[Rfam]
Shown here is a 347-nucleotide RNA sequence from Qipengyuania marisflavi, a member of the family "Alphaproteobacteria transfer-messenger RNA". On this family, see Williams and Bartel, RNA 1996: "Phylogenetic analysis of tmRNA secondary structure". The base pairs follow the family's consensus structure, which is taken from published work.

RNA sequence: CCACUUCCCAUUAAGCCAGAGAUCGCUAUAUAGGGGGUGCCGGUUUCGACCGGAUAUGGCGAUAAAUGGCGUUAUGUAAUAGAUACAACGGACCCGGGGGCAGUACCCGGCGGCUCCACCACCAGACGCGGUUGCGAGAGCGCAUCUGAUGAAGGGGCCGAACUAGGAUCGACGUGUAUUGAAAGAUAUCGUUUUUGCCCGGGCUGAGUAACCCGUUCAAGGCUCAAAACCCACAAGUGCCAAUGAUAAUGAAGCACUCGCAAUCGCUGCGUAAUCUGACGGCCUAACGGCCUGAUCUUACAAAGCUAAAGCGCGGUUGGACCCACCGGGCAACAGAAGGGACUCCG
Numbered sequence: 001c002c003a004c005u006u007c008c009c010a011u012u013a014a015g016c017c018a019g020a021g022a023u024c025g026c027u028a029u030a031u032a033g034g035g036g037g038u039g040c041c042g043g044u045u046u047c048g049a050c051c052g053g054a055u056a057u058g059g060c061g062a063u064a065a066a067u068g069g070c071g072u073u074a075u076g077u078a079a080u081a082g083a084u085a086c087a088a089c090g091g092a093c094c095c096g097g098g099g100g101c102a103g104u105a106c107c108c109g110g111c112g113g114c115u116c117c118a119c120c121a122c123c124a125g126a127c128g129c130g131g132u133u134g135c136g137a138g139a140g141c142g143c144a145u146c147u148g149a150u151g152a153a154g155g156g157g158c159c160g161a162a163c164u165a166g167g168a169u170c171g172a173c174g175u176g177u178a179u180u181g182a183a184a185g186a187u188a189u190c191g192u193u194u195u196u197g198c199c200c201g202g203g204c205u206g207a208g209u210a211a212c213c214c215g216u217u218c219a220a221g222g223c224u225c226a227a228a229a230c231c232c233a234c235a236a237g238u239g240c241c242a243a244u245g246a247u248a249a250u251g252a253a254g255c256a257c258u259c260g261c262a263a264u265c266g267c268u269g270c271g272u273a274a275u276c277u278g279a280c281g282g283c284c285u286a287a288c289g290g291c292c293u294g295a296u297c298u299u300a301c302a303a304a305g306c307u308a309a310a311g312c313g314c315g316g317u318u319g320g321a322c323c324c325a326c327c328g329g330g331c332a333a334c335a336g337a338a339g340g341g342a343c344u345c346c347g
Base pairs, nucleotide, nucleotide: 040053041052042051043050058199059198060197061196062195069192070191071190073188074187075186084178085177086176088175089174090173094110095109096108097107098106111160112159113158114157115156116155117154200215201214202213203212205226206225207224314328315327316326317325319346320345321344324341

NCBI's taxonomy places the organism under Bacteria, Pseudomonadota, Alphaproteobacteria, Erythrobacteraceae, Qipengyuania.